[Rfam]
RNA sequence: UGUUGCACCAAUCAGCUGACUGUGUCCUUCUCCCGUGGGGUCCCUGUGCAGAAUGGCUGCAAACAGCAGCCUCUGUGGUAGCCGAUGCGGCCUGCUGCCUGUCUGGGCUGCUCUAAAGAUCUAGGAGACACCC
Numbered sequence: 001u002g003u004u005g006c007a008c009c010a011a012u013c014a015g016c017u018g019a020c021u022g023u024g025u026c027c028u029u030c031u032c033c034c035g036u037g038g039g040g041u042c043c044c045u046g047u048g049c050a051g052a053a054u055g056g057c058u059g060c061a062a063a064c065a066g067c068a069g070c071c072u073c074u075g076u077g078g079u080a081g082c083c084g085a086u087g088c089g090g091c092c093u094g095c096u097g098c099c100u101g102u103c104u105g106g107g108c109u110g111c112u113c114u115a116a117a118g119a120u121c122u123a124g125g126a127g128a129c130a131c132c133c
Stems, first nucleotide, its partner, number of pairs: 003051003019047002022044001025040003077121003088110006
The family of this 133-nucleotide RNA from Sus scrofa is "Small nucleolar RNA SNORA70". A search with the family's covariance model found it, with a score of 81 bits. For this family Rfam cites "Pseudouridine in RNA: what, where, how, and why" (Charette and Gray, IUBMB Life, 2000). Pairs were carried over by alignment from the consensus structure, which was predicted with PFOLD. NCBI's taxonomy places the organism under Eukaryota, Deuterostomia, Amniota, Eutheria, Sus. Rfam classes the family as an H/ACA-box small nucleolar RNA.